[Rfam]
RNA sequence: UGUACAAUAAGGCUAUUAAGGGUGGUGACUCGCCCCUCAUUUGAAGAAAAAGGGGGUGAUGCCUAUGACGGUUUUUGAGGCCAUAAUGAUCAUGUUGACCUUUGGAUCAUUCGUGGUACUGUUACUGUCAGAAAAAAAGUAACCACCCUCAUGCCUGGUAAGCGUUAGGGUAGUUACUUUUCCCAAUGCGAGCUGCCCCUUUAAAGGGCUAUUGUACGUAACCGUUGGUGUGACAGCACCAGCG
Numbered sequence: 001u002g003u004a005c006a007a008u009a010a011g012g013c014u015a016u017u018a019a020g021g022g023u024g025g026u027g028a029c030u031c032g033c034c035c036c037u038c039a040u041u042u043g044a045a046g047a048a049a050a051a052g053g054g055g056g057u058g059a060u061g062c063c064u065a066u067g068a069c070g071g072u073u074u075u076u077g078a079g080g081c082c083a084u085a086a087u088g089a090u091c092a093u094g095u096u097g098a099c100c101u102u103u104g105g106a107u108c109a110u111u112c113g114u115g116g117u118a119c120u121g122u123u124a125c126u127g128u129c130a131g132a133a134a135a136a137a138a139g140u141a142a143c144c145a146c147c148c149u150c151a152u153g154c155c156u157g158g159u160a161a162g163c164g165u166u167a168g169g170g171u172a173g174u175u176a177c178u179u180u181u182c183c184c185a186a187u188g189c190g191a192g193c194u195g196c197c198c199c200u201u202u203a204a205a206g207g208g209c210u211a212u213u214g215u216a217c218g219u220a221a222c223c224g225u226u227g228g229u230g231u232g233a234c235a236g237c238a239c240c241a242g243c244g
Base pairs, nucleotide, nucleotide: 001218002217003216004215005214007212009210011194012193013192014191017151019149020148021147022146024143026141030059031058032057034056035055036054037053038052067129068128069127070126071125072124080095081094105120107118164178195209196208197207198206223244224243225242226241227240228239229238230237231236